Source information
Rfam assigns this 251-nucleotide RNA sequence from Clostridium pasteurianum to the family "Group II catalytic intron D1-D4-6". Rfam links the family to the GO term Group II intron splicing. Pairs were carried over by alignment from the consensus structure. Group II introns are found in rRNA, tRNA and mRNA of organelles in fungi, plants and protists, and also in mRNA in bacteria. NCBI's taxonomy places the organism under Bacteria, Bacillati, Eubacteriales, Clostridiaceae, Clostridium pasteurianum.
RNA sequence: GGAAUCCUGCCAAAGUAAUAUUUAGCAAAUAGCUUUGUAUCGAGUCUUGGAGAUGUUGCGGUAACGUAAUAUUUUAAGCGUAGGCAGAAAGUUAGCGAGGUAGAAUUGACUGGGUGGUAACCCUGCAGUGAAUGGUAUAGAGCUCCGAAAAGUUGCUCGAUGAUGUGGCAGAAACGUUCACGAACGUGGAAAGCAAUAUUUGUUUGUGCGUUAAAGCGAGUGCAAACAAACACAUCCGAGGUCAGAGACCC
Numbered sequence: 001g002g003a004a005u006c007c008u009g010c011c012a013a014a015g016u017a018a019u020a021u022u023u024a025g026c027a028a029a030u031a032g033c034u035u036u037g038u039a040u041c042g043a044g045u046c047u048u049g050g051a052g053a054u055g056u057u058g059c060g061g062u063a064a065c066g067u068a069a070u071a072u073u074u075u076a077a078g079c080g081u082a083g084g085c086a087g088a089a090a091g092u093u094a095g096c097g098a099g100g101u102a103g104a105a106u107u108g109a110c111u112g113g114g115u116g117g118u119a120a121c122c123c124u125g126c127a128g129u130g131a132a133u134g135g136u137a138u139a140g141a142g143c144u145c146c147g148a149a150a151a152g153u154u155g156c157u158c159g160a161u162g163a164u165g166u167g168g169c170a171g172a173a174a175c176g177u178u179c180a181c182g183a184a185c186g187u188g189g190a191a192a193g194c195a196a197u198a199u200u201u202g203u204u205u206g207u208g209c210g211u212u213a214a215a216g217c218g219a220g221u222g223c224a225a226a227c228a229a230a231c232a233c234a235u236c237c238g239a240g241g242u243c244a245g246a247g248a249c250c251c
Stems, first nucleotide, its partner, number of pairs: 012036004019031004023219001025217002038090001040088002044085004048080002050075011140243001142242003146238002162236006168194002174187003199230011